[Rfam]
RNA sequence: AAGCAAAACUCUGUGGCAGAUGAACAAAAUUAUCUGGCACAAUUUGAGGUUGCUAGAGCAAGAAAGUUUUACCUAUUUUGGUAAUUCUCUUUCCCUUGAGACAACCCGUUAUAUAGGUUCAAACAAC
Numbered sequence: 001a002a003g004c005a006a007a008a009c010u011c012u013g014u015g016g017c018a019g020a021u022g023a024a025c026a027a028a029a030u031u032a033u034c035u036g037g038c039a040c041a042a043u044u045u046g047a048g049g050u051u052g053c054u055a056g057a058g059c060a061a062g063a064a065a066g067u068u069u070u071a072c073c074u075a076u077u078u079u080g081g082u083a084a085u086u087c088u089c090u091u092u093c094c095c096u097u098g099a100g101a102c103a104a105c106c107c108g109u110u111a112u113a114u115a116g117g118u119u120c121a122a123a124c125a126a127c
Stems, first nucleotide, its partner, number of pairs: 009048003012041004017036006065119005074113003079108003088101004
RNA: Small nucleolar RNA SNORA28